Shown here is a 149-nucleotide RNA sequence from Klebsiella sp. RIT-PI-d, a member of the family "Leucine operon leader". The family's consensus secondary structure is taken from published work.

RNA sequence: CUGGAGCAUGGCUUAAAUGAUUCACACCACUCGCUUAACCGGUCUACUACUACUAAACGCAUCUUUUCUGCGCGGUAGACUGGCGGGCGAUAAUCAACAUUAAGCCUCUUCAGUCAGACAGAAACCCGCGCCAAUGCGCGGGUUUUUUU
Numbered sequence: 001c002u003g004g005a006g007c008a009u010g011g012c013u014u015a016a017a018u019g020a021u022u023c024a025c026a027c028c029a030c031u032c033g034c035u036u037a038a039c040c041g042g043u044c045u046a047c048u049a050c051u052a053c054u055a056a057a058c059g060c061a062u063c064u065u066u067u068c069u070g071c072g073c074g075g076u077a078g079a080c081u082g083g084c085g086g087g088c089g090a091u092a093a094u095c096a097a098c099a100u101u102a103a104g105c106c107u108c109u110u111c112a113g114u115c116a117g118a119c120a121g122a123a124a125c126c127c128g129c130g131c132c133a134a135u136g137c138g139c140g141g142g143u144u145u146u147u148u149u
Stems, first nucleotide, its partner, number of pairs: 004110001006108001008107001010106002013103003017100003028089001030087006050078005058072004121146011

Lineage of the source: Bacteria > Pseudomonadota > Enterobacterales > Enterobacteriaceae > Klebsiella. For this family Rfam cites "Attenuation in amino acid biosynthetic operons" (Kolter and Yanofsky, Annu Rev Genet, 1982). About the family: At least 6 amino acid operons are known to be regulated by attenuation. In each a leader sequence of 150-200 bp is found upstream of the first gene in the operon. This leader sequence can assume two different secondary structures known as the terminator and the anti-terminator structure.